[Rfam]
RNA sequence: AGAAGUUUAGGAUAUACUAGUCCGCGAGCCUUCAAAGCUCUAAGAAAACACACAAGUUUAACUUCUG
Numbered sequence: 001a002g003a004a005g006u007u008u009a010g011g012a013u014a015u016a017c018u019a020g021u022c023c024g025c026g027a028g029c030c031u032u033c034a035a036a037g038c039u040c041u042a043a044g045a046a047a048a049c050a051c052a053c054a055a056g057u058u059u060a061a062c063u064u065c066u067g
Base pairs, nucleotide, nucleotide: 001066002065003064004063005062006061007060010023011022012021013020026040027039028038029037046059047058048057049056